The family of this 73-nucleotide RNA from Operophtera brumata is "mir-34 microRNA precursor family". Human mir-34a was discovered computationally and later experimentally verified. The mature sequence is excised from the 5' arm of the hairpin. NCBI's taxonomy places the organism under Eukaryota, Eumetazoa, Hexapoda, Neolepidoptera, Operophtera. The literature on the family includes a 2003 paper in Science by Lim et al., "Vertebrate microRNA genes".
RNA sequence: UCCGCAUUGGCAGUGUGGUUAGCUGGUUGUUGUACUCCAAGCCAACAGCCACUAACAACACUGCUCCUGCGUG
Numbered sequence: 001u002c003c004g005c006a007u008u009g010g011c012a013g014u015g016u017g018g019u020u021a022g023c024u025g026g027u028u029g030u031u032g033u034a035c036u037c038c039a040a041g042c043c044a045a046c047a048g049c050c051a052c053u054a055a056c057a058a059c060a061c062u063g064c065u066c067c068u069g070c071g072u073g
Stems, first nucleotide, its partner, number of pairs: 003071004009065002012062005018056005024051008